[Rfam]
RNA sequence: UUGUUUGCAGGUGCAGCAUCACCAAGAUUCACAUGCAAAAUAUAAGCAGGGGCAGCUAGCAACAAGCAUGUGGUUUCUUUUCUUUUCUUUUCUUUAAAUACCUUCUGCCCAAGUUUAUCUUUGAAGGUGAGAAUCUUGAUGAUGCUGCAUCAGCCAUAUA
Numbered sequence: 001u002u003g004u005u006u007g008c009a010g011g012u013g014c015a016g017c018a019u020c021a022c023c024a025a026g027a028u029u030c031a032c033a034u035g036c037a038a039a040a041u042a043u044a045a046g047c048a049g050g051g052g053c054a055g056c057u058a059g060c061a062a063c064a065a066g067c068a069u070g071u072g073g074u075u076u077c078u079u080u081u082c083u084u085u086u087c088u089u090u091u092c093u094u095u096a097a098a099u100a101c102c103u104u105c106u107g108c109c110c111a112a113g114u115u116u117a118u119c120u121u122u123g124a125a126g127g128u129g130a131g132a133a134u135c136u137u138g139a140u141g142a143u144g145c146u147g148c149a150u151c152a153g154c155c156a157u158a159u160a
Base pairs, nucleotide, nucleotide: 010151011150012149013148014147015146016145017144018143019142020141021140023138024137025136026135027134028133029132030131032129033128
Source information: The record is a 160-nucleotide RNA sequence from Ricinus communis, which matches "mir-172 microRNA precursor family" in Rfam. The family's consensus secondary structure was predicted with PFOLD. On this family, see Jones-Rhoades and Bartel, Mol Cell 2004: "Computational Identification of Plant MicroRNAs and Their Targets, Including a Stress-Induced miRNA".